Rfam assigns this 79-nucleotide RNA from Sobemovirus SBMV to the family "sobemovirus ribosomal frameshift elemental".
The organism belongs to Sobemovirus SBMV, within Viruses.
On this family, see Lucchesi et al., Eur J Biochem 2000: "Regulation of -1 ribosomal frameshifting directed by cocksfoot mottle sobemovirus genome".
The family's consensus secondary structure is taken from published work.
RNA sequence: GUUGCGGAGCCUUUAAACUACCAGCGGGCGGCAGGGUCAAGGCCCUUGCCGCCCUUUCUCAACUUGCAGGCUACGACUU
Numbered sequence: 001g002u003u004g005c006g007g008a009g010c011c012u013u014u015a016a017a018c019u020a021c022c023a024g025c026g027g028g029c030g031g032c033a034g035g036g037u038c039a040a041g042g043c044c045c046u047u048g049c050c051g052c053c054c055u056u057u058c059u060c061a062a063c064u065u066g067c068a069g070g071c072u073a074c075g076a077c078u079u
Stems, first nucleotide, its partner, number of pairs: 026054009035044003
Dot-bracket structure: .........................((((((((((((....))).))))))))).........................